[Rfam]
RNA sequence: ACAAAAUCACCGCUCCGAGCGGGAGCGCCUGCAGGCUGCGGCUAUGGCGCUUUCGCCAGGGCCAGAGGGGAAACGCUCUGACCUUCCGUGUUUGAAAAGGGGCCGCACCGCUUCUGGGG
Numbered sequence: 001a002c003a004a005a006a007u008c009a010c011c012g013c014u015c016c017g018a019g020c021g022g023g024a025g026c027g028c029c030u031g032c033a034g035g036c037u038g039c040g041g042c043u044a045u046g047g048c049g050c051u052u053u054c055g056c057c058a059g060g061g062c063c064a065g066a067g068g069g070g071a072a073a074c075g076c077u078c079u080g081a082c083c084u085u086c087c088g089u090g091u092u093u094g095a096a097a098a099g100g101g102g103c104c105g106c107a108c109c110g111c112u113u114c115u116g117g118g119g
Base pairs, nucleotide, nucleotide: 003113004112011105012104013102014101015100016099019056020055021054022053023052024051025050026049027048028047029046033043034042036040059084060083061082063080064079065078066077067076069074085095086094
RNA: Molybdenum/Tungsten riboswitch aptamer (Moco RNA motif)
Organism: Flavonifractor sp. An10